Shown here is a 97-nucleotide sequence from Azima tetracantha, a member of the family "Plastid-rps12 3UTR RNA". The family has 1,299 seed sequences and 1,710 matches in Rfam 15.1. It is one of the family's seed sequences. The family's RNA type in Rfam is cis-regulatory element. From the family's description: Plastid rpl20 is a non-coding RNA (ncRNA) recognised in plastids. It was found in the three prime untranslated region (3UTR) of rps12 gene, its 3UTR location sugest a role in transcript maduration. The base pairs follow the family's consensus structure, which was predicted with LocARNA.
RNA sequence: GGUUUUCAUUGAUGCAAAUCCACUCACCUCAAUUUGAGAGAAAAAAAGUCCCCUAGUGGUAACAAAUGGUUAUCCAUUAAGCGGGGGAAAUCCUAUU
Numbered sequence: 001g002g003u004u005u006u007c008a009u010u011g012a013u014g015c016a017a018a019u020c021c022a023c024u025c026a027c028c029u030c031a032a033u034u035u036g037a038g039a040g041a042a043a044a045a046a047a048g049u050c051c052c053c054u055a056g057u058g059g060u061a062a063c064a065a066a067u068g069g070u071u072a073u074c075c076a077u078u079a080a081g082c083g084g085g086g087g088a089a090a091u092c093c094u095a096u097u
Base pairs, nucleotide, nucleotide: 010022011021051086052085053084054083055077058074059073060072061071062070063069